[Rfam]
Shown here is a 134-nucleotide sequence from an Acidobacteriota bacterium, a member of the family "c-di-AMP riboswitch aptamer (ydaO/yuaA leader)".
RNA sequence: UCAUUGCAUCUGCCUAAGACGCCGUCUGACGGCGUCGCGGGGGAACCACUCGUCGGGGCGAACCAGAUCGAUCUGGAGAGGACUUCCAACCUCGAGCCCGUCAGCUAACCCCGUCGGCCGAUUGGAGGAUAUCU
Numbered sequence: 001u002c003a004u005u006g007c008a009u010c011u012g013c014c015u016a017a018g019a020c021g022c023c024g025u026c027u028g029a030c031g032g033c034g035u036c037g038c039g040g041g042g043g044a045a046c047c048a049c050u051c052g053u054c055g056g057g058g059c060g061a062a063c064c065a066g067a068u069c070g071a072u073c074u075g076g077a078g079a080g081g082a083c084u085u086c087c088a089a090c091c092u093c094g095a096g097c098c099c100g101u102c103a104g105c106u107a108a109c110c111c112c113g114u115c116g117g118c119c120g121a122u123u124g125g126a127g128g129a130u131a132u133c134u
Stems, first nucleotide, its partner, number of pairs: 012118003018036008037114006047055001056099003064075004078093004
Lineage of the source: Bacteria > Pseudomonadati > Acidobacteriota.